[Rfam]
RNA sequence: AAAGUUCUUCAGGGUUGGGUGUAAUUCCCUACUGGCGGUAAUAGGUCAUCCUUAAGUCCGCGACCCGCAGAUUUCGAUCUGUGGCUGAUCCGGUGUGAAUCCGGGACCAACAGUACAGUCUGGAUGAAAGAAGACGUAU
Numbered sequence: 001a002a003a004g005u006u007c008u009u010c011a012g013g014g015u016u017g018g019g020u021g022u023a024a025u026u027c028c029c030u031a032c033u034g035g036c037g038g039u040a041a042u043a044g045g046u047c048a049u050c051c052u053u054a055a056g057u058c059c060g061c062g063a064c065c066c067g068c069a070g071a072u073u074u075c076g077a078u079c080u081g082u083g084g085c086u087g088a089u090c091c092g093g094u095g096u097g098a099a100u101c102c103g104g105g106a107c108c109a110a111c112a113g114u115a116c117a118g119u120c121u122g123g124a125u126g127a128a129a130g131a132a133g134a135c136g137u138a139u
Stems, first nucleotide, its partner, number of pairs: 003137001006134005017029003031119002033109002035061004056107002065084002089105005111122003
RNA: FMN riboswitch aptamer (RFN element)